Notes:
The family of this 132-nucleotide RNA sequence from Intrasporangium calvum is "ALIL pseudoknot". Rfam classes the family as a cis-regulatory element.
RNA sequence: GGCGUUUUUCGCUCAGGCGGAGCUCGACCGCCGACUGCGGUGAUCGUGGCCUACAUCGACACCUACCGGGCCCGCUUCGGCGUCGAGCCGAUCUGUACCGUGCUGUCCGAGCACGGCAUGAAGAUCGCGCCG
Numbered sequence: 001g002g003c004g005u006u007u008u009u010c011g012c013u014c015a016g017g018c019g020g021a022g023c024u025c026g027a028c029c030g031c032c033g034a035c036u037g038c039g040g041u042g043a044u045c046g047u048g049g050c051c052u053a054c055a056u057c058g059a060c061a062c063c064u065a066c067c068g069g070g071c072c073c074g075c076u077u078c079g080g081c082g083u084c085g086a087g088c089c090g091a092u093c094u095g096u097a098c099c100g101u102g103c104u105g106u107c108c109g110a111g112c113a114c115g116g117c118a119u120g121a122a123g124a125u126c127g128c129g130c131c132g
Stems, first nucleotide, its partner, number of pairs: 016032005078132005089127002092124003